[Rfam]
RNA: JUMPstart RNA
RNA sequence: AAGCAAAUGAGGGGCUGUAACCUUAGGGCGGUAGCGUA
Numbered sequence: 001a002a003g004c005a006a007a008u009g010a011g012g013g014g015c016u017g018u019a020a021c022c023u024u025a026g027g028g029c030g031g032u033a034g035c036g037u038a
Base pairs, nucleotide, nucleotide: 008025009024010023011022012021